Rfam assigns this 151-nucleotide sequence from Hibiscus trionum to the family "Small nucleolar RNA snoR145". Lineage of the source: Eukaryota > Streptophytina > Mesangiospermae > eudicotyledons > Hibiscus. The literature on the family includes a 2009 paper in Nucleic Acids Res by Chen and Wu, "Mining small RNA sequencing data: a new approach to identify small nucleolar RNAs in Arabidopsis". The match comes from Rfam's covariance-model search (113 bits). Gene Ontology terms of the family: nucleolus and RNA processing.
RNA sequence: UGGCGAAGGUCCCAGCAGGGAGGUGUGAUCUCUUUGAAUUGAGUCCUCUCUAACAAAUGAACAAAAACGCCUUCGCAAAUCUGUUUUGCCGAAUCGUAGGAUGCCCAAUUUCUCCAUUUUUUGUGCGUCUUGAACCCUCGGCUACAUUUUU
Numbered sequence: 001u002g003g004c005g006a007a008g009g010u011c012c013c014a015g016c017a018g019g020g021a022g023g024u025g026u027g028a029u030c031u032c033u034u035u036g037a038a039u040u041g042a043g044u045c046c047u048c049u050c051u052a053a054c055a056a057a058u059g060a061a062c063a064a065a066a067a068c069g070c071c072u073u074c075g076c077a078a079a080u081c082u083g084u085u086u087u088g089c090c091g092a093a094u095c096g097u098a099g100g101a102u103g104c105c106c107a108a109u110u111u112c113u114c115c116a117u118u119u120u121u122u123g124u125g126c127g128u129c130u131u132g133a134a135c136c137c138u139c140g141g142c143u144a145c146a147u148u149u150u151u
Stems, first nucleotide, its partner, number of pairs: 003076007011020003025050001027048001030043003088142005100129002103126002106123003